[Rfam]
RNA sequence: CCCGGCGCUGAAGCACCGGGCUAUUUUCUGUCGCCCCUUCGAGGCU
Numbered sequence: 001c002c003c004g005g006c007g008c009u010g011a012a013g014c015a016c017c018g019g020g021c022u023a024u025u026u027u028c029u030g031u032c033g034c035c036c037c038u039u040c041g042a043g044g045c046u
Stems, first nucleotide, its partner, number of pairs: 001020005007014002033045003037041001
Acido-Lenti-1 RNA: a 46-nucleotide RNA from Desulfomonile tiedjei. The family has 87 seed sequences and 2,607 matches in Rfam 15.1. The base pairs follow the family's consensus structure, which is taken from published work.